Annotation: A member of the RNA family "PyrR binding site" from Ornithinibacillus bavariensis, 104 nucleotides long.

RNA sequence: AGAACCUUUAAACAUGUCCAGAGAGGCAAGAAGGUAGCGGAUAUUAUUGUAGCUAUAUGUCUACAUAAAAACCUUUUUUCCUCAUGGAGAAAAGGUUUUUUUAU
Dot-bracket structure: ...(((((....(.((((......)))).))))))............(((((.(....).)))))..((((((((((((((....)))))))))))))).....
Background:
The base pairs follow the family's consensus structure, which is taken from published work. Rfam 15.1 lists 1,498 matches to the family in 930 species. Lineage of the source: Bacteria > Bacillati > Bacilli > Caryophanales > Ornithinibacillus.